The record is a 102-nucleotide RNA from Zingiber officinale, which matches "Small nucleolar RNA SNORD90" in Rfam.
Rfam classes the family as a C/D-box small nucleolar RNA.
Rfam describes the family as follows. snoRNA HBII-295 belongs to the family of C/D snoRNAs. It is the human orthologue of the mouse MBII-295 and has no identified RNA target.
Pairs were carried over by alignment from the consensus structure, which was predicted with RNAalifold.
[Rfam]
RNA sequence: GUCCCAGAUUUUGGGACGAAUCCUGUAUUCGUCCCAGAAUUUGGGACGAAUUCUGAAUUCGUCCCAGAUUUUGGGACGAAUUCUGAAUUCGUCCCAGAAUUU
Numbered sequence: 001g002u003c004c005c006a007g008a009u010u011u012u013g014g015g016a017c018g019a020a021u022c023c024u025g026u027a028u029u030c031g032u033c034c035c036a037g038a039a040u041u042u043g044g045g046a047c048g049a050a051u052u053c054u055g056a057a058u059u060c061g062u063c064c065c066a067g068a069u070u071u072u073g074g075g076a077c078g079a080a081u082u083c084u085g086a087a088u089u090c091g092u093c094c095c096a097g098a099a100u101u102u
Stems, first nucleotide, its partner, number of pairs: 013095009027081010037069001040068002043065001045063006